[Rfam]
RNA sequence: GAGCUGCACGUGCCGGCAAGGUUAAGCACUAAAAGUGUGAAGCCGUAGGGAGACCAAGUCCUAAUAGGGCGUCAAGUCGGUAGGUGCAGGCCCGAAACCGGGUGAUCUAUCCAUGUCCAGGUUGAAGUCCGCGUAAAGGCGGAUGGAGGACCGAACCCACAUCCGUUGAAAAGGGUGGGGAUGAGGUGUGGAUAGGGGAGAAAUUCCAAUCGAACCCGGAGAUAGCUGGUU
Numbered sequence: 001g002a003g004c005u006g007c008a009c010g011u012g013c014c015g016g017c018a019a020g021g022u023u024a025a026g027c028a029c030u031a032a033a034a035g036u037g038u039g040a041a042g043c044c045g046u047a048g049g050g051a052g053a054c055c056a057a058g059u060c061c062u063a064a065u066a067g068g069g070c071g072u073c074a075a076g077u078c079g080g081u082a083g084g085u086g087c088a089g090g091c092c093c094g095a096a097a098c099c100g101g102g103u104g105a106u107c108u109a110u111c112c113a114u115g116u117c118c119a120g121g122u123u124g125a126a127g128u129c130c131g132c133g134u135a136a137a138g139g140c141g142g143a144u145g146g147a148g149g150a151c152c153g154a155a156c157c158c159a160c161a162u163c164c165g166u167u168g169a170a171a172a173g174g175g176u177g178g179g180g181a182u183g184a185g186g187u188g189u190g191g192a193u194a195g196g197g198g199a200g201a202a203a204u205u206c207c208a209a210u211c212g213a214a215c216c217c218g219g220a221g222a223u224a225g226c227u228g229g230u231u
Stems, first nucleotide, its partner, number of pairs: 005088005011082007020044004026038003048055002058070004091229002094226001098219006107195011118183001120152004127144006156180003160177005197207003

This 231-nucleotide part of an RNA from Johnsonella ignava belongs to the Rfam family "Bacterial large subunit ribosomal RNA". The family's consensus secondary structure is taken from published work. The organism belongs to Johnsonella ignava, within Bacteria.